[Rfam]
RNA: tRNA
Organism: Nitratiruptor sp. SB155-2
RNA sequence: GACCCGUUAGCUCAGCUGGUAGAGCAACUCCCUUUUAAGGAGUGGGCCGUUGGUUCGAAUCCAACACGGGUCA
Number, nucleotide and partner (000 for none) at each position: 001g072002a071003c070004c069005c068006g067007u066008u000009a000010g025011c024012u023013c022014a000015g000016c000017u000018g000019g000020u000021a000022g013023a012024g011025c010026a000027a043028c042029u041030c040031c039032c000033u000034u000035u000036u000037a000038a000039g031040g030041a029042g028043u027044g000045g000046g000047c000048c000049g065050u064051u063052g062053g061054u000055u000056c000057g000058a000059a000060u000061c053062c052063a051064a050065c049066a007067c006068g005069g004070g003071u002072c001073a000